[Rfam]
RNA sequence: AUGAUUCGCCGGCUGGAGAGAAGUUCUGGGCGUUUUGACGCCUGGCAACUCACCGAAGGGGCAAGCCCUUGUUGGGCUCAAACUCUCAGGUAAAAGGACAGGGGGAGAGGC
Numbered sequence: 001a002u003g004a005u006u007c008g009c010c011g012g013c014u015g016g017a018g019a020g021a022a023g024u025u026c027u028g029g030g031c032g033u034u035u036u037g038a039c040g041c042c043u044g045g046c047a048a049c050u051c052a053c054c055g056a057a058g059g060g061g062c063a064a065g066c067c068c069u070u071g072u073u074g075g076g077c078u079c080a081a082a083c084u085c086u087c088a089g090g091u092a093a094a095a096g097g098a099c100a101g102g103g104g105g106a107g108a109g110g111c
Base pairs, nucleotide, nucleotide: 006106007105009103010102013101014100015099022050023049024048025047052091053090054089055087056086059085060084061083065078
RNA: Glycine riboswitch aptamer